[Rfam]
Shown here is a 365-nucleotide sequence from Candidatus Afipia apatlaquensis, a member of the family "Alphaproteobacteria transfer-messenger RNA".
Lineage of the source: Bacteria > Pseudomonadati > Pseudomonadota > Hyphomicrobiales > Afipia.
Rfam's curators write: Bacterial tmRNA, also known as 10Sa RNA or SsrA, is named for its dual tRNA and mRNA-like properties.
Pairs were carried over by alignment from the consensus structure, which is taken from published work.
RNA sequence: GGCCUUUUGUCGUUAGGGUUUGCCCCCUAUAUUGAGGAUGCCGGUUCGCCGGCUAUGGAAAUAAAUGGCCGUCGUAAUAAACCAUUCGGACCCGGGGGCAGCACCCGGCGCCUCCACCAAAGCGCGGAUUUCCCGACAAAAAGGCGGGCUUCGGCGGGGGCGAAACAGGAUCGACGAGGGCGUAAAGGGCUCGCUUUUUCUCGGUAUGGUUCCGCCGUUAUCGGGCUAUGCAAUAGUUGCAAACGACAACUAUGCUCCGGUUGCUCAGGCUGCGUAACGCAGUUUGAAAAACCAAGUCUAAAGUCCUAGGGGAUUAAGCCCCUCUAGGCGGGGUUCGGAGGCACCUGGCAACAGAAGCCUCCACU
Numbered sequence: 001g002g003c004c005u006u007u008u009g010u011c012g013u014u015a016g017g018g019u020u021u022g023c024c025c026c027c028u029a030u031a032u033u034g035a036g037g038a039u040g041c042c043g044g045u046u047c048g049c050c051g052g053c054u055a056u057g058g059a060a061a062u063a064a065a066u067g068g069c070c071g072u073c074g075u076a077a078u079a080a081a082c083c084a085u086u087c088g089g090a091c092c093c094g095g096g097g098g099c100a101g102c103a104c105c106c107g108g109c110g111c112c113u114c115c116a117c118c119a120a121a122g123c124g125c126g127g128a129u130u131u132c133c134c135g136a137c138a139a140a141a142a143g144g145c146g147g148g149c150u151u152c153g154g155c156g157g158g159g160g161c162g163a164a165a166c167a168g169g170a171u172c173g174a175c176g177a178g179g180g181c182g183u184a185a186a187g188g189g190c191u192c193g194c195u196u197u198u199u200c201u202c203g204g205u206a207u208g209g210u211u212c213c214g215c216c217g218u219u220a221u222c223g224g225g226c227u228a229u230g231c232a233a234u235a236g237u238u239g240c241a242a243a244c245g246a247c248a249a250c251u252a253u254g255c256u257c258c259g260g261u262u263g264c265u266c267a268g269g270c271u272g273c274g275u276a277a278c279g280c281a282g283u284u285u286g287a288a289a290a291a292c293c294a295a296g297u298c299u300a301a302a303g304u305c306c307u308a309g310g311g312g313a314u315u316a317a318g319c320c321c322c323u324c325u326a327g328g329c330g331g332g333g334u335u336c337g338g339a340g341g342c343a344c345c346u347g348g349c350a351a352c353a354g355a356a357g358c359c360u361c362c363a364c365u
Stems, first nucleotide, its partner, number of pairs: 040053005057201005067194001071190003082180002086177003092108005109162007202217004207228003211225003331346004337362006